[Rfam]
The record is an 86-nucleotide RNA sequence from Raphanus sativus, which matches "Small nucleolar RNA R44/J54/Z268 family" in Rfam. Rfam links the family to the GO terms RNA processing and nucleolus. By type it is a C/D-box small nucleolar RNA. The match comes from Rfam's covariance-model search (71 bits).

RNA sequence: UUUGCAAGUGAAGAUUAAACAGACAGGGACAUCAGAAAUAAUCUGUGUUGACUUUUAGUCUUUAAUGGGAAUCUCUCUGAUGCAUA
Numbered sequence: 001u002u003u004g005c006a007a008g009u010g011a012a013g014a015u016u017a018a019a020c021a022g023a024c025a026g027g028g029a030c031a032u033c034a035g036a037a038a039u040a041a042u043c044u045g046u047g048u049u050g051a052c053u054u055u056u057a058g059u060c061u062u063u064a065a066u067g068g069g070a071a072u073c074u075c076u077c078u079g080a081u082g083c084a085u086a
Base pairs, nucleotide, nucleotide: 003084004083005082006081